RNA: U11 spliceosomal RNA
Organism: Onychostoma macrolepis
RNA sequence: AAAAAGAGCAUUUGCUGUAAUUAGCAUAGUUGUGGAAGAGAGAUUCUCUGACACCGUUACAGAAUCGCUAUCAAGAGAUUUUGGAUGCACAAUUUUUGUAAGUUGGGGCAACUAUUGACCAGCGUUCUAAGCGCCUCA
Dot-bracket structure: .......((((((((((....)))))((((.(((..((((.....))))..))).))))(((((((..........)))))))))))).................((((..((...((.(...).))..)).))))..
Numbered sequence: 001a002a003a004a005a006g007a008g009c010a011u012u013u014g015c016u017g018u019a020a021u022u023a024g025c026a027u028a029g030u031u032g033u034g035g036a037a038g039a040g041a042g043a044u045u046c047u048c049u050g051a052c053a054c055c056g057u058u059a060c061a062g063a064a065u066c067g068c069u070a071u072c073a074a075g076a077g078a079u080u081u082u083g084g085a086u087g088c089a090c091a092a093u094u095u096u097u098g099u100a101a102g103u104u105g106g107g108g109c110a111a112c113u114a115u116u117g118a119c120c121a122g123c124g125u126u127c128u129a130a131g132c133g134c135c136u137c138a
Stems, first nucleotide, its partner, number of pairs: 008088005013026005027059004032054003037049004060083007106136004112131002117127002120124001